This 52-nucleotide RNA from Sciurus vulgaris belongs to the Rfam family "mir-1302 microRNA precursor family". The organism belongs to Sciurus, within Eukaryota. Rfam links the family to the GO terms RISC complex and miRNA-mediated post-transcriptional gene silencing.

RNA sequence: GUGUCAGCAUAAGUAUGUCCCAUGUAAUAUUUGGGAUAUACUUAUGUUAAAC
Numbered sequence: 001g002u003g004u005c006a007g008c009a010u011a012a013g014u015a016u017g018u019c020c021c022a023u024g025u026a027a028u029a030u031u032u033g034g035g036a037u038a039u040a041c042u043u044a045u046g047u048u049a050a051a052c
Stems, first nucleotide, its partner, number of pairs: 006048007014040003018036004022031001
Dot-bracket structure: .....(((((((.(((.(((((........).)))).))).)))))))....